[Rfam]
RNA sequence: UCCCUGGGGGAAGCGAUCUCCCCACGAGGCGACAGCCGAAGCAUCGCGUCCAUCAGUUAAGUCUGCGCUCGCGGCACGUGUGCUCGCAGCAGGUGUAAGGACGCGCGAUG
Dot-bracket structure: ....((((((........)))))).....................((((((...............................................))))))......
Numbered sequence: 001u002c003c004c005u006g007g008g009g010g011a012a013g014c015g016a017u018c019u020c021c022c023c024a025c026g027a028g029g030c031g032a033c034a035g036c037c038g039a040a041g042c043a044u045c046g047c048g049u050c051c052a053u054c055a056g057u058u059a060a061g062u063c064u065g066c067g068c069u070c071g072c073g074g075c076a077c078g079u080g081u082g083c084u085c086g087c088a089g090c091a092g093g094u095g096u097a098a099g100g101a102c103g104c105g106c107g108a109u110g
Stems, first nucleotide, its partner, number of pairs: 005024006046104006